[Rfam]
RNA sequence: AAAAAGGUUUUCUAGGGUUCCGCAAUAUAGCUAUUGGUCUGGUCCGAGAGAAAACACACAGCUAUGCUGUGCCACGGAGGGAUAAAAGCCUGGGAGAU
Numbered sequence: 001a002a003a004a005a006g007g008u009u010u011u012c013u014a015g016g017g018u019u020c021c022g023c024a025a026u027a028u029a030g031c032u033a034u035u036g037g038u039c040u041g042g043u044c045c046g047a048g049a050g051a052a053a054a055c056a057c058a059c060a061g062c063u064a065u066g067c068u069g070u071g072c073c074a075c076g077g078a079g080g081g082a083u084a085a086a087a088g089c090c091u092g093g094g095a096g097a098u
Stems, first nucleotide, its partner, number of pairs: 007055006015045002020042002022039001023036005057071005073093001075096001079091003

Shown here is a 98-nucleotide sequence from Bacillus sp. B1-b2, a member of the family "Guanidine-I riboswitch aptamer". Its family is annotated with regulation of gene expression in the Gene Ontology. The family has 100 seed sequences and 1,509 matches in Rfam 15.1. The pairing is the family consensus, mapped onto this sequence.